[Rfam]
RNA sequence: GUAGGCUAUGGAGAUAUUUAUCCAAUAACUUUACCCGGUAAAAUAGUCGGUAGUGUUUGUUGUAUUUGUGGUGUUUUAGUAAUAGCCUUACCUAUUCCGAUUAUUGUAAAUAAU
Numbered sequence: 001g002u003a004g005g006c007u008a009u010g011g012a013g014a015u016a017u018u019u020a021u022c023c024a025a026u027a028a029c030u031u032u033a034c035c036c037g038g039u040a041a042a043a044u045a046g047u048c049g050g051u052a053g054u055g056u057u058u059g060u061u062g063u064a065u066u067u068g069u070g071g072u073g074u075u076u077u078a079g080u081a082a083u084a085g086c087c088u089u090a091c092c093u094a095u096u097c098c099g100a101u102u103a104u105u106g107u108a109a110a111u112a113a114u
Stems, first nucleotide, its partner, number of pairs: 001114002004111001007108005013102003020095002037077002040074001049063001

Potassium channel RNA editing signal: a 114-nucleotide RNA from Brachionus calyciflorus. The family's consensus secondary structure is taken from published work. On this family, see Bhalla et al., Nat Struct Mol Biol 2004: "Control of human potassium channel inactivation by editing of a small mRNA hairpin". The match comes from Rfam's covariance-model search (71 bits). It is annotated as a cis-regulatory element. About the family: This family represents a group of sequences related to the human potassium channel Kv1.1 hairpin element which directs the efficient modification of an adenosine to inosine by an adenosine deaminase acting on RNA (ADAR). The ADAR modification causes an isoleucine/valine recoding event which lies in the ion-conducting pore of the potassium channel. It is thought that this editing event targets the process of fast inactivation and allows a more rapid recovery from inactivation at negative potentials.